A member of the RNA family "Group II catalytic intron D1-D4-4" from Bacillus methanolicus, 140 nucleotides long.
A search with the family's covariance model found it, with a score of 109 bits.
Taxonomically the source falls in Bacillus methanolicus (Bacteria, Bacillati, Bacillota, Bacillaceae).
Pairs were carried over by alignment from the consensus structure.
Rfam describes the family as follows. Group II introns are found in rRNA, tRNA and mRNA of organelles in fungi, plants and protists, and also in mRNA in bacteria.

RNA sequence: UUGUUGGUGAAAGUCCAACCCGAGUAAGUGCCAAGACGCUCGGUAGCUGACCGGCAACUGGUGGAGAAAUCCUAAGGUUGAAGCCCGGUGACAACGUAACUCCUUUUGGAGUGCUAGCAAAUCAACAGGUCGUAACAUUA
Numbered sequence: 001u002u003g004u005u006g007g008u009g010a011a012a013g014u015c016c017a018a019c020c021c022g023a024g025u026a027a028g029u030g031c032c033a034a035g036a037c038g039c040u041c042g043g044u045a046g047c048u049g050a051c052c053g054g055c056a057a058c059u060g061g062u063g064g065a066g067a068a069a070u071c072c073u074a075a076g077g078u079u080g081a082a083g084c085c086c087g088g089u090g091a092c093a094a095c096g097u098a099a100c101u102c103c104u105u106u107u108g109g110a111g112u113g114c115u116a117g118c119a120a121a122u123c124a125a126c127a128g129g130u131c132g133u134a135a136c137a138u139u140a
Base pairs, nucleotide, nucleotide: 020043021042022041023040024039050089051088052087053086054085055080056079057078058077059076064071065070096114097113099112100111101110102109117133118132
Dot-bracket structure: ...................(((((..............)))))......((((((((((....((....))....)))))....)))))......((.((((......))))))..((.............)).......